[Rfam]
RNA sequence: AAAGGAGCAAUAACCAAUUUCUUGUUUCAUCAAAAGUGCAGUAUUGCUCCCUUUCCU
Numbered sequence: 001a002a003a004g005g006a007g008c009a010a011u012a013a014c015c016a017a018u019u020u021c022u023u024g025u026u027u028c029a030u031c032a033a034a035a036g037u038g039c040a041g042u043a044u045u046g047c048u049c050c051c052u053u054u055c056c057u
Stems, first nucleotide, its partner, number of pairs: 001053002004050009019036002022033003
About this RNA
Plastid-psbA-3 3UTR RNA: a 57-nucleotide RNA sequence from Nyssa sinensis. For this family Rfam cites "Retrograde signaling in plants: A critical review focusing on the GUN pathway and beyond" (Richter et al., Plant Commun, 2023). Rfam describes the family as follows. Plastid psbA-3 is a non-coding RNA (ncRNA) present in plastids. It was identified in inverted repeat sequences in the 3 prime untranslate region (3UTR) of photosystem II quinone-binding protein (psbA). Taxonomically the source falls in Nyssa (Eukaryota, Spermatophyta, Magnoliopsida, Gunneridae). Pairs were carried over by alignment from the consensus structure, which was predicted with LocARNA.